[Rfam]
RNA sequence: ACAUCUGAAUCUUUCCCACUCCUUGCGACAUAGUGCUGACUGGAGACAUGCGAUGCCACAGGAAAGCAGAGGAAAUCCAGACAAGCUCCCUUUCACCGCAGUGGGACUUGUCUCAAUGCCUUUGCAACAUUU
Numbered sequence: 001a002c003a004u005c006u007g008a009a010u011c012u013u014u015c016c017c018a019c020u021c022c023u024u025g026c027g028a029c030a031u032a033g034u035g036c037u038g039a040c041u042g043g044a045g046a047c048a049u050g051c052g053a054u055g056c057c058a059c060a061g062g063a064a065a066g067c068a069g070a071g072g073a074a075a076u077c078c079a080g081a082c083a084a085g086c087u088c089c090c091u092u093u094c095a096c097c098g099c100a101g102u103g104g105g106a107c108u109u110g111u112c113u114c115a116a117u118g119c120c121u122u123u124g125c126a127a128c129a130u131u132u
Stems, first nucleotide, its partner, number of pairs: 002055004013046002016043003022038001066125006079113007093104003

Small nucleolar RNA SNORA55: a 132-nucleotide RNA sequence from Pandion haliaetus. Rfam classes the family as an H/ACA-box small nucleolar RNA. Rfam links the family to the GO terms RNA processing and nucleolus. From the family's description: ACA55 is a member of the H/ACA class of snoRNA that guide the sites of modification of uridines to pseudouridines.